[Rfam]
RNA sequence: GUGGAAUGAUGAACUUGUUUAUCCAUUCGCCGAGCGCUGCUGGUUCUGUCCCUCGGCUGCCUUGCGGUCCGUUCUGGGUCGCAGGGUUACAGUCGUCAGGUCCUGCUCGUCUGGUCCAAUGUUCUGUUGGGUCAGCCGCUGUAGGGUCUGAUGGCUGGUGUGAGGGAUCAGGCCGGCUCUGACAAAGACGAAUAGACAUAUCUGAUCAC
Numbered sequence: 001g002u003g004g005a006a007u008g009a010u011g012a013a014c015u016u017g018u019u020u021a022u023c024c025a026u027u028c029g030c031c032g033a034g035c036g037c038u039g040c041u042g043g044u045u046c047u048g049u050c051c052c053u054c055g056g057c058u059g060c061c062u063u064g065c066g067g068u069c070c071g072u073u074c075u076g077g078g079u080c081g082c083a084g085g086g087u088u089a090c091a092g093u094c095g096u097c098a099g100g101u102c103c104u105g106c107u108c109g110u111c112u113g114g115u116c117c118a119a120u121g122u123u124c125u126g127u128u129g130g131g132u133c134a135g136c137c138g139c140u141g142u143a144g145g146g147u148c149u150g151a152u153g154g155c156u157g158g159u160g161u162g163a164g165g166g167a168u169c170a171g172g173c174c175g176g177c178u179c180u181g182a183c184a185a186a187g188a189c190g191a192a193u194a195g196a197c198a199u200a201u202c203u204g205a206u207c208a209c
Stems, first nucleotide, its partner, number of pairs: 010208003014204001017201002020198001023195001025193005030187001034183001039177004046171003049167005055161001059087012090157006102145002108138002111135011
A member of the RNA family "Small nucleolar RNA SNORD17" from Anabarilius grahami, 209 nucleotides long. Rfam's curators write: The snoRNA HBI-43 belongs to the C/D family of snoRNAs, guiding 2'O-ribose methylation at position U3797 of the 28S rRNA. Pseudouridylation in position U3797 is predicted to be guided by the H/ACA snoRNA ACA48. A search with the family's covariance model found it, with a score of 68 bits. Gene Ontology terms of the family: nucleolus and RNA processing. The source organism's lineage runs through Eukaryota, Chordata, Osteoglossocephalai, Cypriniphysae and Anabarilius. Rfam classes the family as a C/D-box small nucleolar RNA.